Mammalian CPEB3 ribozyme: a 76-nucleotide sequence from Laticauda laticaudata. The mammalian CPEB3 ribozyme is a self cleaving RNA located in the second intron of the CPEB3 gene which belongs to a family of genes regulating messenger RNA polyadenylation. Its family is annotated with RNA nuclease activity in the Gene Ontology. Lineage of the source: Eukaryota > Craniata > Bifurcata > Elapidae > Laticauda. The family's consensus secondary structure is taken from published work.

Nucleotides: 076
Base pairs, nucleotide, nucleotide: 013046014045015044016043017042021076022075023074024073025072026071027070028040029039030038050065051064052063053062054061055060
Number, partner (000 for none) and nucleotide at each position: 001000a002000c003000u004000c005000a006000a007000u008000c009000a010000a011000u012000g013046g014045g015044g016043g017042c018000c019000a020000u021076a022075g023074a024073a025072g026071g027070a028040g029039c030038g031000u032000u033000c034000a035000c036000g037000u038030c039029g040028c041000u042017g043016u044015c045014c046013c047000u048000g049000u050065c051064a052063g053062g054061u055060a056000u057000g058000u059000u060055u061054a062053c063052c064051u065050g066000c067000g068000a069000a070027u071026c072025c073024u074023u075022c076021u